[Rfam]
This 79-nucleotide RNA from Cnephaeus nilssonii belongs to the Rfam family "mir-9198 microRNA precursor family". The base pairs follow the family's consensus structure, which was predicted with RNAalifold.
RNA sequence: GCUGCCGCUCGCACCUGCUGCUGGUGCCCGGAGCCGGUUCCAAUCACUUGGCGCCAUCAGUGGGUGCGAGCAGCGGCUG
Numbered sequence: 001g002c003u004g005c006c007g008c009u010c011g012c013a014c015c016u017g018c019u020g021c022u023g024g025u026g027c028c029c030g031g032a033g034c035c036g037g038u039u040c041c042a043a044u045c046a047c048u049u050g051g052c053g054c055c056a057u058c059a060g061u062g063g064g065u066g067c068g069a070g071c072a073g074c075g076g077c078u079g
Stems, first nucleotide, its partner, number of pairs: 004074002007071014022056007

Notes: The match comes from Rfam's covariance-model search (95 bits).